The record is a 134-nucleotide RNA from Methyloceanibacter superfactus, which matches "Alphaproteobacterial sRNA BjrC1505" in Rfam.
Pairs were carried over by alignment from the consensus structure.
NCBI's taxonomy places the organism under Bacteria, Pseudomonadota, Hyphomicrobiales, Hyphomicrobiaceae, Methyloceanibacter.
A reference for the family is Madhugiri et al. (2012), "Small RNAs of the Bradyrhizobium/Rhodopseudomonas lineage and their analysis", RNA Biol.

RNA sequence: CUUAGUCUUAACUGCUUGUUAGGAGUUGAGCGGUAAGUUUGCGUUAUCCAGUCCUCUGGAUCUGAGUGGCCUGUUCCACUCUGUUUGACGCCUCCCUGUUAACUUCCUGAGCCGCCUUUGGCGGCUCUUUUUUU
Numbered sequence: 001c002u003u004a005g006u007c008u009u010a011a012c013u014g015c016u017u018g019u020u021a022g023g024a025g026u027u028g029a030g031c032g033g034u035a036a037g038u039u040u041g042c043g044u045u046a047u048c049c050a051g052u053c054c055u056c057u058g059g060a061u062c063u064g065a066g067u068g069g070c071c072u073g074u075u076c077c078a079c080u081c082u083g084u085u086u087g088a089c090g091c092c093u094c095c096c097u098g099u100u101a102a103c104u105u106c107c108u109g110a111g112c113c114g115c116c117u118u119u120g121g122c123g124g125c126u127c128u129u130u131u132u133u134u
Base pairs, nucleotide, nucleotide: 001041003014004013015037016036020035021034047060048059049058050057064081065080066079067078068077069076087100088099089098090097109127110126111125112124113123114122115121116120